The record is a 373-nucleotide sequence from Paracoccus aminophilus, which matches "Bacterial RNase P class A" in Rfam. The source organism's lineage runs through Bacteria, Pseudomonadota, Rhodobacterales, Paracoccaceae and Paracoccus aminophilus. Its family is annotated with ribonuclease P activity, tRNA processing and dimeric ribonuclease P complex in the Gene Ontology. Ribonuclease P (RNase P) is a ubiquitous endoribonuclease, found in archaea, bacteria and eukarya as well as chloroplasts and mitochondria. The match comes from Rfam's covariance-model search (317 bits).

Nucleotides: 373
Base pairs, nucleotide, nucleotide: 001369002368003367004366005365006364007363008362009361010360011358012324013323014322015321016320017319018318020037021036023034024033025032026031042356043355044354046353047352048351049350050349051211052210053209054208059258060257061256064207065206066205067204068203069083070082071081072080073079084098085096086095087094088093099202100201104200105199106196107195108194121142122141123138124137125136126135127134128133150168151167152166153165154164155163169191170189171188172187175184176183177182215281216280217279218278225272226271227270228269229268230267249263250262251261252260253259288307289306290305291304292303293302294301295300
Number, partner (000 for none) and nucleotide at each position: 001369g002368c003367g004366g005365a006364u007363g008362g009361c010360u011358g012324g013323a014322u015321g016320a017319c018318c019000g020037c021036g022000g023034g024033g025032g026031u027000u028000u029000c030000g031026g032025c033024c034023c035000g036021c037020g038000a039000g040000g041000a042356a043355a044354g045000u046353c047352c048351g049350g050349a051211c052210u053209c054208c055000a056000u057000g058000a059258a060257g061256g062000c063000a064207c065206g066205g067204u068203g069083c070082c071081g072080g073079g074000u075000a076000a077000c078000g079073c080072c081071c082070g083069g084098c085096g086095g087094g088093g089000g090000u091000a092000a093088c094087c095086c096085u097000a098084g099202g100201g101000a102000a103000a104200g105199c106196g107195c108194c109000a110000c111000a112000g113000a114000g115000a116000a117000c118000a119000g120000a121142c122141c123138g124137c125136c126135c127134a128133u129000c130000u131000u132000g133128a134127u135126g136125g137124g138123u139000a140000a141122g142121g143000g144000u145000g146000a147000a148000a149000c150168g151167g152166u153165g154164g155163g156000g157000u158000a159000a160000g161000a162000g163155c164154c165153c166152a167151c168150c169191g170189c171188g172187g173000g174000a175184c176183g177182g178000g179000u180000a181000a182177c183176c184175g185000g186000a187172c188171c189170g190000g191169c192000a193000a194108g195107g196106c197000a198000a199105g200104c201100c202099c203068c204067a205066c206065c207064g208054g209053g210052a211051g212000c213000a214000a215281u216280g217279c218278c219000g220000a221000a222000u223000a224000g225272g226271g227270a228269u229268c230267u231000u232000g233000c234000g235000c236000a237000g238000g239000g240000c241000a242000a243000c244000c245000u246000g247000c248000a249263g250262g251261g252260c253259g254000g255000c256061c257060u258059u259253c260252g261251c262250c263249u264000g265000a266000a267230a268229g269228a270227u271226c272225c273000g274000g275000g276000u277000u278218g279217g280216c281215a282000g283000c284000u285000c286000g287000a288307g289306c290305c291304c292303g293302u294301c295300a296000g297000c298000a299000a300295u301294g302293g303292c304291g305290g306289g307288c308000c309000u310000a311000g312000a313000u314000g315000a316000a317000u318018g319017g320016u321015c322014a323013u324012c325000c326000a327000g328000a329000g330000g331000g332000g333000c334000a335000a336000c337000c338000c339000u340000u341000g342000g343000a344000c345000a346000a347000a348000a349050u350049c351048c352047g353046g354044c355043u356042u357000a358011c359000a360010g361009g362008c363007c364006a365005u366004c367003c368002g369001c370000g371000c372000a373000a
The family's consensus secondary structure is taken from published work.